Record summary: Rfam assigns this 179-nucleotide RNA from Deinococcus aquiradiocola to the family "FMN riboswitch aptamer (RFN element)". The organism belongs to Deinococcus, within Bacteria. It scores 70 bits against the family's covariance model. The base pairs follow the family's consensus structure, which is taken from published work.

[Rfam]
RNA sequence: GCCAUCCUUCGGGGCAGGGUGAAACGCCCUACCGGCGGUGACGGUCGCGGGACACCCCGCGCCUCAGCCCGCGAAGCCAGCGCCAGAUGCGGUACGGCGCGGCCCGACCCGGUGAGAUUCCGGGGCCGACGGUUCCCCCGCGCACGUCGCGGGCACAGUCCGGAUGAGAGAAGGAGGAG
Numbered sequence: 001g002c003c004a005u006c007c008u009u010c011g012g013g014g015c016a017g018g019g020u021g022a023a024a025c026g027c028c029c030u031a032c033c034g035g036c037g038g039u040g041a042c043g044g045u046c047g048c049g050g051g052a053c054a055c056c057c058c059g060c061g062c063c064u065c066a067g068c069c070c071g072c073g074a075a076g077c078c079a080g081c082g083c084c085a086g087a088u089g090c091g092g093u094a095c096g097g098c099g100c101g102g103c104c105c106g107a108c109c110c111g112g113u114g115a116g117a118u119u120c121c122g123g124g125g126c127c128g129a130c131g132g133u134u135c136c137c138c139c140g141c142g143c144a145c146g147u148c149g150c151g152g153g154c155a156c157a158g159u160c161c162g163g164a165u166g167a168g169a170g171a172a173g174g175a176g177g178a179g
Base pairs, nucleotide, nucleotide: 003177005175006174007173008172009171010170017029018028019027033128034127035072036071037070038069067126068125076103077102108124109123110122111121112120130162131161132160

Rfam links the family to the GO term FMN binding.